[Rfam]
RNA sequence: UUGCCAAUCUAAGUAGUAGUGCCGCAGGUACUGAUUUUAAAAGGCUUACCUGUACACGACUACUUAAAUUGGCAA
Numbered sequence: 001u002u003g004c005c006a007a008u009c010u011a012a013g014u015a016g017u018a019g020u021g022c023c024g025c026a027g028g029u030a031c032u033g034a035u036u037u038u039a040a041a042a043g044g045c046u047u048a049c050c051u052g053u054a055c056a057c058g059a060c061u062a063c064u065u066a067a068a069u070u071g072g073c074a075a
Base pairs, nucleotide, nucleotide: 001075002074003073004072005071006070007069010066011065012064013063014062015061016060017059019057024053025052026051027050028049029048030047